[Rfam]
RNA sequence: GAUUUUGAAUGAUGAGAUCAUAUAUUUACACAGUUAUCCCUGUCUGAUAACAUCUUGAUGAAAUUUUGUGAUCUGACAAUAUA
Numbered sequence: 001g002a003u004u005u006u007g008a009a010u011g012a013u014g015a016g017a018u019c020a021u022a023u024a025u026u027u028a029c030a031c032a033g034u035u036a037u038c039c040c041u042g043u044c045u046g047a048u049a050a051c052a053u054c055u056u057g058a059u060g061a062a063a064u065u066u067u068g069u070g071a072u073c074u075g076a077c078a079a080u081a082u083a
Stems, first nucleotide, its partner, number of pairs: 002082002005079003